[Rfam]
RNA sequence: CCGAGCAGCCGGGGUGGUAGCGGUACCCUGUACCAACAAUCCGCUAUAGUUGGGGUGAUGCCGAACAGAGGAUCAGGUAAGCUGUAAAGCUGCCCAUCAUAAGUGGCGUUGACGUCUGGGUCUUACGCAACAGGAAUCUGUGAACCGGGUCAGGUCAGGAAUGGAGCAGCCCUAAGCAGAAGCUCUUGUGUGCCGUGAGGGUGCCUGGGCUGAGCUAACUGUGGUGGUAACGUUUAUGGUUUUGGAUUCGAAGUGAGGCGCUCGG
Numbered sequence: 001c002c003g004a005g006c007a008g009c010c011g012g013g014g015u016g017g018u019a020g021c022g023g024u025a026c027c028c029u030g031u032a033c034c035a036a037c038a039a040u041c042c043g044c045u046a047u048a049g050u051u052g053g054g055g056u057g058a059u060g061c062c063g064a065a066c067a068g069a070g071g072a073u074c075a076g077g078u079a080a081g082c083u084g085u086a087a088a089g090c091u092g093c094c095c096a097u098c099a100u101a102a103g104u105g106g107c108g109u110u111g112a113c114g115u116c117u118g119g120g121u122c123u124u125a126c127g128c129a130a131c132a133g134g135a136a137u138c139u140g141u142g143a144a145c146c147g148g149g150u151c152a153g154g155u156c157a158g159g160a161a162u163g164g165a166g167c168a169g170c171c172c173u174a175a176g177c178a179g180a181a182g183c184u185c186u187u188g189u190g191u192g193c194c195g196u197g198a199g200g201g202u203g204c205c206u207g208g209g210c211u212g213a214g215c216u217a218a219c220u221g222u223g224g225u226g227g228u229a230a231c232g233u234u235u236a237u238g239g240u241u242u243u244g245g246a247u248u249c250g251a252a253g254u255g256a257g258g259c260g261c262u263c264g265g
Base pairs, nucleotide, nucleotide: 001265002264003263004262005261006260008056009055010054011029012028013027014026015025016024018022033053034052035051036050037049061258062257065254066253070249071248072247073246074245079242080241081240082239083238084237085236086235087234088233091229092228095226096225097224098223099222100221103219104218105216106215107214114210115209116208117207118206119205120204121203122199123198124197125196126195127194128190129189131188132187133186134185135184137180138179139178140177141176147172148171149170150169155164156163157162

Description: This 265-nucleotide RNA from Roseburia hominis belongs to the Rfam family "Bacterial large signal recognition particle RNA". For this family Rfam cites "Kinship in the SRP RNA family" (Rosenblad et al., RNA Biol, 2009). Pairs were carried over by alignment from the consensus structure, which is taken from published work. Rfam classes the family as a non-coding RNA gene. NCBI's taxonomy places the organism under Bacteria, Bacillati, Clostridia, Lachnospirales, Roseburia hominis. A search with the family's covariance model found it, with a score of 183 bits.